[Rfam]
RNA sequence: CAAAACGGCUUUUGUCAUGAGUGCGACACAUAAGUAGCUUGCUUCCUCUGUGGACAGUACUGACAUCAAGAGAUUUCAGAAGCACAAUUUUUUGGUUAACUGGGCAGCUGGUGAUCAUGGGUCCCAGCACCCUA
Number, nucleotide and partner (000 for none) at each position: 001c000002a000003a000004a000005a000006c000007g000008g083009c082010u081011u080012u079013u028014g027015u026016c025017a000018u000019g000020a000021g000022u000023g000024c000025g016026a015027c014028a013029c050030a049031u000032a047033a000034g045035u000036a043037g042038c000039u000040u000041g000042c037043u036044u000045c034046c000047u032048c000049u030050g029051u078052g077053g076054a075055c000056a000057g000058u000059a074060c000061u072062g000063a000064c000065a000066u000067c000068a000069a000070g000071a000072g061073a000074u059075u054076u053077c052078a051079g012080a011081a010082g009083c008084a000085c000086a000087a000088u000089u000090u000091u000092u000093u000094g000095g000096u000097u000098a000099a000100c000101u000102g132103g131104g130105c000106a000107g128108c127109u126110g125111g124112u000113g123114a122115u121116c120117a000118u000119g000120g116121g115122u114123c113124c111125c110126a109127g108128c107129a000130c104131c103132c102133u000134a000

The record is a 134-nucleotide RNA sequence from Tupaia belangeri, which matches "U11 spliceosomal RNA" in Rfam. Pairs were carried over by alignment from the consensus structure, which is taken from published work. Lineage of the source: Eukaryota > Sarcopterygii > Amniota > Boreoeutheria > Tupaia belangeri. The family is grouped with related families in Rfam's "U1 clan". The match comes from Rfam's covariance-model search (63 bits).